[Rfam]
c-di-GMP-I-GGC riboswitch aptamer: a 75-nucleotide RNA from Bipolaricaulis sanaerobius. Lineage of the source: Bacteria > Bacteria candidate phyla > Bipolaricaulia (SeqCode) > Bipolaricaulales (SeqCode) > Bipolaricaulis (SeqCode).
RNA sequence: CCUGAAAAGGGCAAACCCACGGGAACGUGGGGGCGCAAAGCUACGAACCCAGGACGGGUAGUCGGGCUGCCAGGA
Number, nucleotide and partner (000 for none) at each position: 001c000002c000003u072004g071005a000006a000007a000008a000009g000010g000011g036012c035013a000014a000015a000016c031017c030018c029019a028020c027021g026022g000023g000024a000025a000026c021027g020028u019029g018030g017031g016032g000033g000034c061035g012036c011037a000038a000039a068040g067041c066042u065043a000044c064045g063046a062047a059048c058049c057050c000051a000052g000053g000054a000055c000056g000057g049058g048059u047060a000061g034062u046063c045064g044065g042066g041067c040068u039069g000070c000071c004072a003073g000074g000075a000